[Rfam]
Nucleotides: 136
Base pairs, nucleotide, nucleotide: 020043021042022041023040050091051090052089053088054087055082056081057080058079059078060077066071100110101109102108103107113129114128115127
Number, partner (000 for none) and nucleotide at each position: 001000u002000a003000g004000c005000c006000g007000g008000u009000g010000a011000a012000a013000g014000u015000c016000c017000g018000g019000u020043c021042c022041g023040g024000a025000u026000a027000a028000u029000c030000g031000c032000c033000a034000g035000g036000g037000a038000g039000c040023c041022u042021g043020g044000u045000a046000g047000c048000a049000g050091a051090c052089g053088g054087c055082c056081g057080g058079u059078a060077c061000u062000c063000a064000g065000g066071g067000g068000a069000a070000a071066c072000g073000a074000c075000g076000g077060g078059u079058a080057u081056c082055g083000a084000a085000g086000c087054g088053c089052c090051g091050u092000g093000u094000c095000a096000a097000a098000a099000g100110c101109c102108c103107c104000u105000u106000u107103g108102g109101g110100g111000g112000a113129g114128c115127a116000a117000c118000c119000g120000g121000u122000c123000g124000g125000u126000c127115u128114g129113u130000a131000g132000c133000a134000u135000c136000a